Notes
Eukaryotic large subunit ribosomal RNA: a 600-nucleotide part of an RNA from Corynespora cassiicola.
RNA sequence: CAGCGGGGAAAGAAAACUCUAUUAAGCUUAACUCUAGUUUAAUAUUAUAAAAAAAUAUAGAAGGUGUAGAAUAGAUAGGAGCUUCGGCGCCGGUAAAAUACUACUACUUUUAUUAUUUUUUUACUUAUUUAAUAAAGCGGAGCUAGGUUUUACCGCCUAACUUCUAGCGUAAAAAUUCUUUAUAAGCUGAUCUGGGUUAAAAAUAUUAUUAGAUAAAAAGUUUAGCUAGAGCGGUAUAUCUGUUAAACUAUAACGCAGAUGUUUUAAAAAGAACUUAUAAAAAACAGAAAUUUCUAGUAGAGCAAAAAAGUAAAAGUUUUUUUAAUUUUAAUUUUCAGUGUAAAUACAAACUAUAAAAAUAUAGCCUAUUAAUCUUUUAGUCUUUUAAAAUUUAAGGCUAGAAGUGCCAGAAAAGUUACUAUAGGGAUAACUGGCUUGUAGCAGCUAAGCGUUUAUAGUAAUAUUAUUUUUUAAUCUUUUAAUAUCAGCUUUUUCUAUUAUACUAAAGCAGAAUUUAGUAAGCGUUAGAUUAUUUACCUACUAAUAGAGAAUAUAAGCUAGGUUUAAACCGUCGUAAAACAGAUUAGUUUUACUUUACUA
Numbered sequence: 001c002a003g004c005g006g007g008g009a010a011a012g013a014a015a016a017c018u019c020u021a022u023u024a025a026g027c028u029u030a031a032c033u034c035u036a037g038u039u040u041a042a043u044a045u046u047a048u049a050a051a052a053a054a055a056u057a058u059a060g061a062a063g064g065u066g067u068a069g070a071a072u073a074g075a076u077a078g079g080a081g082c083u084u085c086g087g088c089g090c091c092g093g094u095a096a097a098a099u100a101c102u103a104c105u106a107c108u109u110u111u112a113u114u115a116u117u118u119u120u121u122u123a124c125u126u127a128u129u130u131a132a133u134a135a136a137g138c139g140g141a142g143c144u145a146g147g148u149u150u151u152a153c154c155g156c157c158u159a160a161c162u163u164c165u166a167g168c169g170u171a172a173a174a175a176u177u178c179u180u181u182a183u184a185a186g187c188u189g190a191u192c193u194g195g196g197u198u199a200a201a202a203a204u205a206u207u208a209u210u211a212g213a214u215a216a217a218a219a220g221u222u223u224a225g226c227u228a229g230a231g232c233g234g235u236a237u238a239u240c241u242g243u244u245a246a247a248c249u250a251u252a253a254c255g256c257a258g259a260u261g262u263u264u265u266a267a268a269a270a271g272a273a274c275u276u277a278u279a280a281a282a283a284a285c286a287g288a289a290a291u292u293u294c295u296a297g298u299a300g301a302g303c304a305a306a307a308a309a310g311u312a313a314a315a316g317u318u319u320u321u322u323u324a325a326u327u328u329u330a331a332u333u334u335u336c337a338g339u340g341u342a343a344a345u346a347c348a349a350a351c352u353a354u355a356a357a358a359a360u361a362u363a364g365c366c367u368a369u370u371a372a373u374c375u376u377u378u379a380g381u382c383u384u385u386u387a388a389a390a391u392u393u394a395a396g397g398c399u400a401g402a403a404g405u406g407c408c409a410g411a412a413a414a415g416u417u418a419c420u421a422u423a424g425g426g427a428u429a430a431c432u433g434g435c436u437u438g439u440a441g442c443a444g445c446u447a448a449g450c451g452u453u454u455a456u457a458g459u460a461a462u463a464u465u466a467u468u469u470u471u472u473a474a475u476c477u478u479u480u481a482a483u484a485u486c487a488g489c490u491u492u493u494u495c496u497a498u499u500a501u502a503c504u505a506a507a508g509c510a511g512a513a514u515u516u517a518g519u520a521a522g523c524g525u526u527a528g529a530u531u532a533u534u535u536a537c538c539u540a541c542u543a544a545u546a547g548a549g550a551a552u553a554u555a556a557g558c559u560a561g562g563u564u565u566a567a568a569c570c571g572u573c574g575u576a577a578a579a580c581a582g583a584u585u586a587g588u589u590u591u592a593c594u595u596u597a598c599u600a
Stems, first nucleotide, its partner, number of pairs: 002599002006596003010591002018425004023421002025417005031221003038213007048123009057113007074105001076103003081088002128201005138194004146157003174188001176186002224237001225235003238260006263364002269321006275301002278296002281293003302311002326350003331345004352361003375403006383397004434475001436473001438472001440468002443465002449459002486561001487559004491553001492550005499524001502519006526540003530536001567585002570582001571580002
Taxonomically the source falls in Corynespora cassiicola (Eukaryota, Fungi, Ascomycota, Pleosporomycetidae).